A member of the RNA family "mir-358 microRNA precursor family" from Caenorhabditis briggsae, 111 nucleotides long. The base pairs follow the family's consensus structure, which was predicted with RNAalifold. On this family, see Ruby et al., Cell 2006: "Large-scale sequencing reveals 21U-RNAs and additional microRNAs and endogenous siRNAs in C. elegans". It is one of the family's seed sequences.
[Rfam]
RNA sequence: ACUCCCCAUUCGGAUUGAUACCCGACUUCCGGAUACCAAAUGUCAUAUCCAACUCGUUUCGUCAAUUGGUAUCCUUAGUCGUGGUCUCAAUCUGUACACGGCGAGAGUGUU
Numbered sequence: 001a002c003u004c005c006c007c008a009u010u011c012g013g014a015u016u017g018a019u020a021c022c023c024g025a026c027u028u029c030c031g032g033a034u035a036c037c038a039a040a041u042g043u044c045a046u047a048u049c050c051a052a053c054u055c056g057u058u059u060c061g062u063c064a065a066u067u068g069g070u071a072u073c074c075u076u077a078g079u080c081g082u083g084g085u086c087u088c089a090a091u092c093u094g095u096a097c098a099c100g101g102c103g104a105g106a107g108u109g110u111u
Base pairs, nucleotide, nucleotide: 002105003104004103006101007100011094012093013092014091015090016089017088018087020085021084022083023081024080025079026078027077031074032073033072034071035070036069037068038067039066041064042063044061